[Rfam]
RNA sequence: GAGUUACUCGUCUGCGGCAAGGUUAAGCGAUGAGCGGAGCCGUAGCGAAAGCGAGUCCGAAUAGGGCGACAUAGUCGUAGGCGGUAGACCCGAAACUGAGCGAGCUACCCAUGGGCAGGUUGAAGCGGGGGUAAGACCUCGUGGAGGACCGAACCGACCUAGGUUAAAAACUGGGCGGAUGACCUGUGGGUCGGAGUGAAAGGCUAAUCAAGCUCAGUGAUAUCUGGUU
Numbered sequence: 001g002a003g004u005u006a007c008u009c010g011u012c013u014g015c016g017g018c019a020a021g022g023u024u025a026a027g028c029g030a031u032g033a034g035c036g037g038a039g040c041c042g043u044a045g046c047g048a049a050a051g052c053g054a055g056u057c058c059g060a061a062u063a064g065g066g067c068g069a070c071a072u073a074g075u076c077g078u079a080g081g082c083g084g085u086a087g088a089c090c091c092g093a094a095a096c097u098g099a100g101c102g103a104g105c106u107a108c109c110c111a112u113g114g115g116c117a118g119g120u121u122g123a124a125g126c127g128g129g130g131g132u133a134a135g136a137c138c139u140c141g142u143g144g145a146g147g148a149c150c151g152a153a154c155c156g157a158c159c160u161a162g163g164u165u166a167a168a169a170a171c172u173g174g175g176c177g178g179a180u181g182a183c184c185u186g187u188g189g190g191u192c193g194g195a196g197u198g199a200a201a202g203g204c205u206a207a208u209c210a211a212g213c214u215c216a217g218u219g220a221u222a223u224c225u226g227g228u229u
Stems, first nucleotide, its partner, number of pairs: 005086003009083010021041004027035002045052002055067004089227002092224001096217006105193001107191009116181001118150004125142006154178003158175005195205003

Shown here is a 229-nucleotide part of an RNA from Conexibacter woesei, a member of the family "Bacterial large subunit ribosomal RNA".